[Rfam]
RNA sequence: UUAUUGGAGAGUUUGAUCCUGGCUCAGGACGAACGCUGGCGGCGUGCCUAAUACAUGCAAGUCGAGCGAAUCUCUUCGGAGAUUAGCGGCGGACGGGUGAGUAACACGUGGGCAACCUGCCUGUAAGACUGGGAUAACUUCGGGAAACCGGAGCUAAUACCGGAUAACUUCAGACACCACCUGGUGACUGAAUAAAAGAUGGCUUCGGCUAUCACUUACAGAUGGGCCCGCGGCGCAUUAGCUAGUUGGUGAGGUAACGGCUCACCAAGGCGACGAUGCGUAGCCGACCUGAGAGGGUGAUCGGCCACACUGGGACUGAGACACGGCCCAGACUCCUACGGGAGGCAGCAGUAGGGAAUCUUCCGCAAUGGACGAAAGUCUGACGGAGCAACGCCGCGUGAGCGAUGAAGGCCUUCGGGUCGUAAAGCUCUGUUGUUAGGGAAGAACAAGUACCGUUCGAAUAGGGCGGUACCUUGACGGUACCUAACCAGAAAGCCACGGCUAACUACGUGCCAGCAGCCGCGGUAAUACGUAGGUGGCAAGCGUUGUCCGGAAUUAUUG
Numbered sequence: 001u002u003a004u005u006g007g008a009g010a011g012u013u014u015g016a017u018c019c020u021g022g023c024u025c026a027g028g029a030c031g032a033a034c035g036c037u038g039g040c041g042g043c044g045u046g047c048c049u050a051a052u053a054c055a056u057g058c059a060a061g062u063c064g065a066g067c068g069a070a071u072c073u074c075u076u077c078g079g080a081g082a083u084u085a086g087c088g089g090c091g092g093a094c095g096g097g098u099g100a101g102u103a104a105c106a107c108g109u110g111g112g113c114a115a116c117c118u119g120c121c122u123g124u125a126a127g128a129c130u131g132g133g134a135u136a137a138c139u140u141c142g143g144g145a146a147a148c149c150g151g152a153g154c155u156a157a158u159a160c161c162g163g164a165u166a167a168c169u170u171c172a173g174a175c176a177c178c179a180c181c182u183g184g185u186g187a188c189u190g191a192a193u194a195a196a197a198g199a200u201g202g203c204u205u206c207g208g209c210u211a212u213c214a215c216u217u218a219c220a221g222a223u224g225g226g227c228c229c230g231c232g233g234c235g236c237a238u239u240a241g242c243u244a245g246u247u248g249g250u251g252a253g254g255u256a257a258c259g260g261c262u263c264a265c266c267a268a269g270g271c272g273a274c275g276a277u278g279c280g281u282a283g284c285c286g287a288c289c290u291g292a293g294a295g296g297g298u299g300a301u302c303g304g305c306c307a308c309a310c311u312g313g314g315a316c317u318g319a320g321a322c323a324c325g326g327c328c329c330a331g332a333c334u335c336c337u338a339c340g341g342g343a344g345g346c347a348g349c350a351g352u353a354g355g356g357a358a359u360c361u362u363c364c365g366c367a368a369u370g371g372a373c374g375a376a377a378g379u380c381u382g383a384c385g386g387a388g389c390a391a392c393g394c395c396g397c398g399u400g401a402g403c404g405a406u407g408a409a410g411g412c413c414u415u416c417g418g419g420u421c422g423u424a425a426a427g428c429u430c431u432g433u434u435g436u437u438a439g440g441g442a443a444g445a446a447c448a449a450g451u452a453c454c455g456u457u458c459g460a461a462u463a464g465g466g467c468g469g470u471a472c473c474u475u476g477a478c479g480g481u482a483c484c485u486a487a488c489c490a491g492a493a494a495g496c497c498a499c500g501g502c503u504a505a506c507u508a509c510g511u512g513c514c515a516g517c518a519g520c521c522g523c524g525g526u527a528a529u530a531c532g533u534a535g536g537u538g539g540c541a542a543g544c545g546u547u548g549u550c551c552g553g554a555a556u557u558a559u560u561g
Base pairs, nucleotide, nucleotide: 009025010024011023012022013021027551028550029549030548032547033546034545035544036543037542039397040396041395042394043393044392045390046389047355052353053352054351056350057349058348061090062089063088066087067086069084070083071082072081073080074079097308098307099306107232108231109230110229111228112227113226116225117224121221122220123219124218125217126216127215129163130162131161132160138153139152140151141150142149143148169192170191171190172189173188175186176185177184178183198213199212200211201210202209203208234280235279236278241271242270243269246268247267248266249265250264251263252262253261283305284304285303286302287298288297289296290295310331311330312329313328314327333344334343335342336341361387363386364385365384369382370381371380372379373378400430401429402428403427410421411420412419413418434492435488436487437486438485439484440483444478450472451471452470453469454468455467456466495540496539497538498537499536506535507534508533509532510531516523517522